[Rfam]
RNA sequence: GCCUGCAUACGUCCCUGAAACUGUCUCUCCUGCGGCCGUACGGUCAUGGAGGCCAGUCGUUAGGGCGGUUCUGGAAACGGAGCCGUCUCCCGUUGUGGAAAGGGGAUCUCCGAGGCCUGCA
Numbered sequence: 001g002c003c004u005g006c007a008u009a010c011g012u013c014c015c016u017g018a019a020a021c022u023g024u025c026u027c028u029c030c031u032g033c034g035g036c037c038g039u040a041c042g043g044u045c046a047u048g049g050a051g052g053c054c055a056g057u058c059g060u061u062a063g064g065g066c067g068g069u070u071c072u073g074g075a076a077a078c079g080g081a082g083c084c085g086u087c088u089c090c091c092g093u094u095g096u097g098g099a100a101a102g103g104g105g106a107u108c109u110c111c112g113a114g115g116c117c118u119g120c121a
Stems, first nucleotide, its partner, number of pairs: 003115002006112001011107006020057004025052002028050003034045004063088011089098002
Dot-bracket structure: ..((.(....((((((...((((.((.(((...((((....))))..))))).)))).....(((((((((((....)))))))))))((......))...))))))....).))......
RNA: Molybdenum/Tungsten riboswitch aptamer (Moco RNA motif)